[Rfam]
The record is a 113-nucleotide sequence from Burkholderia cenocepacia, which matches "Burkholderia sRNA Bp1_Cand684_SIPHT" in Rfam.
RNA sequence: AGAAAAGUGACCGCCGCCCCGCGCAGGGGCGACGCUAAUAGACCGUUAGCGCAACAGGUUCAACGACAGGGCGAGGAUCACAGACAUCGACCCCACGCCCCCGCGAGCCACUC
Numbered sequence: 001a002g003a004a005a006a007g008u009g010a011c012c013g014c015c016g017c018c019c020c021g022c023g024c025a026g027g028g029g030c031g032a033c034g035c036u037a038a039u040a041g042a043c044c045g046u047u048a049g050c051g052c053a054a055c056a057g058g059u060u061c062a063a064c065g066a067c068a069g070g071g072c073g074a075g076g077a078u079c080a081c082a083g084a085c086a087u088c089g090a091c092c093c094c095a096c097g098c099c100c101c102c103g104c105g106a107g108c109c110a111c112u113c
Stems, first nucleotide, its partner, number of pairs: 011076002014073001015031006058067003096105003

Source information
A reference for the family is Khoo et al. (2012), "Computational discovery and RT-PCR validation of novel Burkholderia conserved and Burkholderia pseudomallei unique sRNAs", BMC Genomics. The organism belongs to Burkholderia cenocepacia, within Bacteria. It is annotated as a small RNA.